About this RNA
Rfam assigns this 86-nucleotide RNA sequence from Gossypium stocksii to the family "MIR7486 microRNA precursor family". The family's consensus secondary structure was predicted with RNAalifold. Lineage of the source: Eukaryota > Streptophytina > Pentapetalae > rosids > Gossypium.
RNA sequence: CUUGAGGAAGCGUUUUGUCCAACGUGGAUAAAAUGCUUCCUUGAGGACGCGUUUUAUGCCCACGUGGACAAAACGCUUCCUCAGGG
Numbered sequence: 001c002u003u004g005a006g007g008a009a010g011c012g013u014u015u016u017g018u019c020c021a022a023c024g025u026g027g028a029u030a031a032a033a034u035g036c037u038u039c040c041u042u043g044a045g046g047a048c049g050c051g052u053u054u055u056a057u058g059c060c061c062a063c064g065u066g067g068a069c070a071a072a073a074c075g076c077u078u079c080c081u082c083a084g085g086g
Stems, first nucleotide, its partner, number of pairs: 001085021024063004028057009039046002